[Rfam]
RNA: L31-Actinobacteria ribosomal protein leader
Nucleotides: 048
Stems, first nucleotide, its partner, number of pairs: 003048003007044004015038004020034004
Number, partner (000 for none) and nucleotide at each position: 001000u002000c003048g004047g005046c006000u007044c008043c009042g010041g011000u012000u013000c014000a015038c016037g017036u018035u019000u020034g021033u022032c023031g024000u025000a026000u027000c028000c029000c030000g031023c032022g033021g034020c035018a036017g037016c038015g039000a040000c041010c042009c043008g044007g045000c046005g047004c048003c